[Rfam]
Nucleotides: 097
Base pairs, nucleotide, nucleotide: 009023010022011021012020053086055084056078057077059075060074061073062072063071
Number, partner (000 for none) and nucleotide at each position: 001000g002000g003000u004000u005000u006000c007000c008000a009023u010022u011021g012020g013000u014000g015000u016000a017000a018000a019000u020012c021011c022010a023009a024000u025000c026000a027000c028000a029000u030000u031000c032000a033000u034000u035000u036000g037000a038000g039000a040000u041000g042000a043000g044000a045000a046000g047000c048000a049000a050000u051000u052000c053086c054000c055084c056078a057077u058000u059075g060074g061073u062072a063071g064000c065000a066000a067000a068000c069000a070000a071063u072062u073061a074060u075059u076000c077057a078056u079000u080000a081000a082000g083000a084055g085000a086053g087000a088000a089000a090000a091000a092000u093000c094000a095000u096000a097000u